The record is a 77-nucleotide sequence, which matches "KDPG-aldolase RNA" in Rfam. By type it is a small RNA. It is one of the family's seed sequences. The family's consensus secondary structure is taken from published work.
[Rfam]
RNA sequence: GGUACGGCCGGACGUCCGCGCAUUUGCGCGGAGCCCUGUGGCAGGGGCGUGCCAUUGUUAACCGCGAGUAAUGGAGA
Numbered sequence: 001g002g003u004a005c006g007g008c009c010g011g012a013c014g015u016c017c018g019c020g021c022a023u024u025u026g027c028g029c030g031g032a033g034c035c036c037u038g039u040g041g042c043a044g045g046g047g048c049g050u051g052c053c054a055u056u057g058u059u060a061a062c063c064g065c066g067a068g069u070a071a072u073g074g075a076g077a
Stems, first nucleotide, its partner, number of pairs: 001053006015032006063068001